A member of the RNA family "TPP riboswitch aptamer (THI element)" from Isoptericola variabilis, 101 nucleotides long. Taxonomically the source falls in Isoptericola variabilis (Bacteria, Actinomycetota, Actinomycetes, Promicromonosporaceae).
RNA sequence: UGGUGCGCGCACGGGAGCCCCGGCCGGGGCUGAGAGGGCGUACGCCGACCGUCGAACCUGAUCUGGGUCAUGCCAGCGAAGGGAGCACCAGUGGACUCGUC
Numbered sequence: 001u002g003g004u005g006c007g008c009g010c011a012c013g014g015g016a017g018c019c020c021c022g023g024c025c026g027g028g029g030c031u032g033a034g035a036g037g038g039c040g041u042a043c044g045c046c047g048a049c050c051g052u053c054g055a056a057c058c059u060g061a062u063c064u065g066g067g068u069c070a071u072g073c074c075a076g077c078g079a080a081g082g083g084a085g086c087a088c089c090a091g092u093g094g095a096c097u098c099g100u101c
Stems, first nucleotide, its partner, number of pairs: 007088001009086002011052004017030005037046003057082003063076004